This 73-nucleotide RNA from Caballeronia telluris belongs to the Rfam family "tRNA". The base pairs follow the family's consensus structure, which is taken from published work.

RNA sequence: GCCGGCUUAGCUCAUCUGGUAGAGCGCUUGACUUGUAAUCAUGAGGUGGCGGGUUCGAGUCCUGCAGCCGGCA
Numbered sequence: 001g002c003c004g005g006c007u008u009a010g011c012u013c014a015u016c017u018g019g020u021a022g023a024g025c026g027c028u029u030g031a032c033u034u035g036u037a038a039u040c041a042u043g044a045g046g047u048g049g050c051g052g053g054u055u056c057g058a059g060u061c062c063u064g065c066a067g068c069c070g071g072c073a
Base pairs, nucleotide, nucleotide: 001072002071003070004069005068006067007066010025011024012023013022027043029041030040031039049065050064051063052062053061